[Rfam]
RNA sequence: CGACCCCGUACGGGAGAGUCCUCCGGAAAGUCCCGGAGGCGCCGAAGGAGCAACUCCUCCCCGGAAUCUCUCAGGCACACGUACCGUACGGACGAG
Numbered sequence: 001c002g003a004c005c006c007c008g009u010a011c012g013g014g015a016g017a018g019u020c021c022u023c024c025g026g027a028a029a030g031u032c033c034c035g036g037a038g039g040c041g042c043c044g045a046a047g048g049a050g051c052a053a054c055u056c057c058u059c060c061c062c063g064g065a066a067u068c069u070c071u072c073a074g075g076c077a078c079a080c081g082u083a084c085c086g087u088a089c090g091g092a093c094g095a096g
Stems, first nucleotide, its partner, number of pairs: 006091008020039006041076003044072002048070003054064002

Shown here is a 96-nucleotide sequence from Streptomyces sp. Z26, a member of the family "Glycine riboswitch aptamer". It scores 72 bits against the family's covariance model. Lineage of the source: Bacteria > Bacillati > Actinomycetota > Kitasatosporales > Streptomyces. Gene Ontology term of the family: glycine biosynthetic process.